Rfam assigns this 200-nucleotide RNA sequence from Sporosarcina sp. BI001-red to the family "Group II catalytic intron D1-D4-5". Lineage of the source: Bacteria > Bacillati > Caryophanales > Caryophanaceae > Sporosarcina. The family has 139 seed sequences and 720 matches in Rfam 15.1. On this family, see Bonen and Vogel, Trends Genet 2001: "The ins and outs of group II introns". Group II introns are found in rRNA, tRNA and mRNA of organelles in fungi, plants and protists, and also in mRNA in bacteria.
RNA sequence: CUGAAGGGUUAUAUCGAGAAGUCGAAUGAGGGGGUAACGCUCCGAAAGGCUUCCCCUGCGUCGAGUAGCACGCAGAUUAGUAAGGAAAAGCGUGUUAUAAGCUCGGCUAAUAGGCGUGAGAAUUUACCGUAACAGUUUAGUUUGGCUGACGAAAUCCUACCCGAUGGGGUGGUGUAAAUCAUGAUGCUUGGGUUGAACAA
Numbered sequence: 001c002u003g004a005a006g007g008g009u010u011a012u013a014u015c016g017a018g019a020a021g022u023c024g025a026a027u028g029a030g031g032g033g034g035u036a037a038c039g040c041u042c043c044g045a046a047a048g049g050c051u052u053c054c055c056c057u058g059c060g061u062c063g064a065g066u067a068g069c070a071c072g073c074a075g076a077u078u079a080g081u082a083a084g085g086a087a088a089a090g091c092g093u094g095u096u097a098u099a100a101g102c103u104c105g106g107c108u109a110a111u112a113g114g115c116g117u118g119a120g121a122a123u124u125u126a127c128c129g130u131a132a133c134a135g136u137u138u139a140g141u142u143u144g145g146c147u148g149a150c151g152a153a154a155u156c157c158u159a160c161c162c163g164a165u166g167g168g169g170u171g172g173u174g175u176a177a178a179u180c181a182u183g184a185u186g187c188u189u190g191g192g193u194u195g196a197a198c199a200a
Base pairs, nucleotide, nucleotide: 018053019052020051021050022049023048031043032042033041034040054192055191056190061106062105063104064103065098066097067096068095069094070093071092072091073090078087113188114187115186116185117184122179123178124177125176126175127174128151129150130149134147135146136145137144156172157171159170160169161168162167